[Rfam]
Rfam assigns this 98-nucleotide RNA sequence from Psychrilyobacter sp. S5 to the family "Purine riboswitch aptamer". It scores 69 bits against the family's covariance model.
RNA sequence: UAAUCUUCUAAAUCAAAAUCUUAUAUAAAUUUCGGAUAUGGCGAAAAGUUUCUACCAGCUACCUUAAACAGCUGACUAUAAGAAGAUAGAUACCUAAU
Numbered sequence: 001u002a003a004u005c006u007u008c009u010a011a012a013u014c015a016a017a018a019u020c021u022u023a024u025a026u027a028a029a030u031u032u033c034g035g036a037u038a039u040g041g042c043g044a045a046a047a048g049u050u051u052c053u054a055c056c057a058g059c060u061a062c063c064u065u066a067a068a069c070a071g072c073u074g075a076c077u078a079u080a081a082g083a084a085g086a087u088a089g090a091u092a093c094c095u096a097a098u
Stems, first nucleotide, its partner, number of pairs: 019083007030046005056074005